This 176-nucleotide RNA from Oryza glumipatula belongs to the Rfam family "MIR807 microRNA precursor family". A search with the family's covariance model found it, with a score of 169 bits. The family's consensus secondary structure was predicted with WAR.
[Rfam]
RNA sequence: AACCACACUAUUGAUGAAUGGAUUCACCCAUGAGAUGACGUGGUUGUUCCAUCUAGGAUGGGGACGUGGCAUCCUAUUAAUUUCGUGUGAUGGCUAGUAAUAGGAUGCCAUGUCCUCGUCCUAGGUGAAACAUCCACGUCAUCUCGUGAGUGAAUCAAUUCAUCAAUAGUGUGGUU
Number, nucleotide and partner (000 for none) at each position: 001a176002a175003c174004c173005a172006c171007a170008c000009u168010a167011u166012u165013g164014a163015u162016g000017a160018a159019u158020g000021g156022a155023u154024u153025c152026a151027c150028c000029c000030a147031u146032g145033a144034g000035a142036u141037g140038a139039c138040g000041u136042g135043g134044u000045u132046g131047u130048u129049c000050c000051a126052u125053c000054u123055a122056g000057g120058a119059u000060g000061g000062g000063g114064a113065c112066g000067u000068g000069g108070c107071a106072u105073c104074c103075u102076a101077u100078u099079a098080a000081u000082u000083u000084c000085g000086u097087g000088u000089g000090a000091u000092g000093g000094c000095u000096a000097g086098u079099a078100a077101u076102a075103g074104g073105a072106u071107g070108c069109c000110a000111u000112g065113u064114c063115c000116u000117c000118g000119u058120c057121c000122u055123a054124g000125g052126u051127g000128a000129a048130a047131c046132a045133u000134c043135c042136a041137c000138g039139u038140c037141a036142u035143c000144u033145c032146g031147u030148g000149a000150g027151u026152g025153a024154a023155u022156c021157a000158a019159u018160u017161c000162a015163u014164c013165a012166a011167u010168a009169g000170u007171g006172u005173g004174g003175u002176u001